[Rfam]
RNA sequence: CGGUGUCAAUGAUGUCACUUUUACCUACAUUGUUUGACUGUCUCUGAGAAAAACCCCAAAUCCUGAGACACCU
Numbered sequence: 001c002g003g004u005g006u007c008a009a010u011g012a013u014g015u016c017a018c019u020u021u022u023a024c025c026u027a028c029a030u031u032g033u034u035u036g037a038c039u040g041u042c043u044c045u046g047a048g049a050a051a052a053a054c055c056c057c058a059a060a061u062c063c064u065g066a067g068a069c070a071c072c073u
Stems, first nucleotide, its partner, number of pairs: 002072001004070004

Source information
The family of this 73-nucleotide RNA sequence from Aleadryas rufinucha is "Small nucleolar RNA SNORD34". snoRNA U34 is found in intron 5 of the ribosomal protein L13a gene in humans. For this family Rfam cites "Purified box C/D snoRNPs are able to reproduce site-specific 2'-O-methylation of target RNA in vitro" (Galardi et al., Mol Cell Biol, 2002). The family's RNA type in Rfam is C/D-box small nucleolar RNA. Its family is annotated with RNA processing and nucleolus in the Gene Ontology. Clan: SNORD34 clan.